[Rfam]
RNA sequence: GGUGGUCCACACCAGUGUUUCGGACAGCGGUUCGAUUCCGCUCAGCUCCAUUUCCGCUUCCGCCCACCUGCGGGAGCUUGUCCAGGGGCUGCAAUGGUUUCGACGGGGCGCCAGGAGGAUGACUGAAGCCUGCUCGGUGAGAGCAAAACCGUAACAGCGAACAACAUCGUUCGUUUCUCCCGUCAAGCCGCCCCUGUGGCCGCCUGA
Numbered sequence: 001g002g003u004g005g006u007c008c009a010c011a012c013c014a015g016u017g018u019u020u021c022g023g024a025c026a027g028c029g030g031u032u033c034g035a036u037u038c039c040g041c042u043c044a045g046c047u048c049c050a051u052u053u054c055c056g057c058u059u060c061c062g063c064c065c066a067c068c069u070g071c072g073g074g075a076g077c078u079u080g081u082c083c084a085g086g087g088g089c090u091g092c093a094a095u096g097g098u099u100u101c102g103a104c105g106g107g108g109c110g111c112c113a114g115g116a117g118g119a120u121g122a123c124u125g126a127a128g129c130c131u132g133c134u135c136g137g138u139g140a141g142a143g144c145a146a147a148a149c150c151g152u153a154a155c156a157g158c159g160a161a162c163a164a165c166a167u168c169g170u171u172c173g174u175u176u177c178u179c180c181c182g183u184c185a186a187g188c189c190g191c192c193c194c195u196g197u198g199g200c201c202g203c204c205u206g207a
Stems, first nucleotide, its partner, number of pairs: 001124003005120001016110003020106003026042005043091007